[Rfam]
RNA: Small nucleolar RNA Z112
Organism: Triticum aestivum
RNA sequence: GUCUCAGUGAAGAGCUCUAGACCAUAGGAAGUGUCGUAUGACACUGUACAACAGCUCUUCUCUGCAGCUGCAAGUGUCCAUCCUUACAUGAUAGCCUCUGUGGUUUGGUCUUGGAUGGAAAUACCCAUUUGCACAUGCUUGUUCAGCCGUGUGGUUGAUUUUAAACGGGUCUCUGAGUGGU
Dot-bracket structure: (((.(...............................................................(((((((((((((((....((.(.((((.....))))).))...)))))))......))))))))...........................................).)))